[Rfam]
The family of this 86-nucleotide sequence from Salpingoeca rosetta is "Selenocysteine transfer RNA".
RNA sequence: GCUUGGAUGAGUCGGGACGGUUCCCGGGGCGGGCUUCAAACCCGUGGGUCACAAGCGUGGCAGCGGUUCGACUCCGCCCUCCGAGC
Numbered sequence: 001g002c003u004u005g006g007a008u009g010a011g012u013c014g015g016g017a018c019g020g021u022u023c024c025c026g027g028g029g030c031g032g033g034c035u036u037c038a039a040a041c042c043c044g045u046g047g048g049u050c051a052c053a054a055g056c057g058u059g060g061c062a063g064c065g066g067u068u069c070g071a072c073u074c075c076g077c078c079c080u081c082c083g084a085g086c
Base pairs, nucleotide, nucleotide: 001086002085003084004083005082006081007080009078012027013026014025015024016023017022029045030044031043032042033041048061049060050059051058052057063077064076065075066074
Its family is annotated with triplet codon-amino acid adaptor activity in the Gene Ontology. A search with the family's covariance model found it, with a score of 67 bits.